[Rfam]
RNA sequence: GCUUCUGUGAAGAGAACAAACCCAGCUCUCUGAUUCGAGGUGAGGAACGAAAAUUCUGAGAAGC
Numbered sequence: 001g002c003u004u005c006u007g008u009g010a011a012g013a014g015a016a017c018a019a020a021c022c023c024a025g026c027u028c029u030c031u032g033a034u035u036c037g038a039g040g041u042g043a044g045g046a047a048c049g050a051a052a053a054u055u056c057u058g059a060g061a062a063g064c
Base pairs, nucleotide, nucleotide: 001064002063003062004061005060
Annotation: The record is a 64-nucleotide RNA sequence from Cylicocyclus nassatus, which matches "Small nucleolar RNA sn3060" in Rfam. Pairs were carried over by alignment from the consensus structure, which was predicted with WAR. Rfam 15.1 lists 23 matches to the family in 17 species. It is annotated as a C/D-box small nucleolar RNA. The organism belongs to Cylicocyclus, within Eukaryota.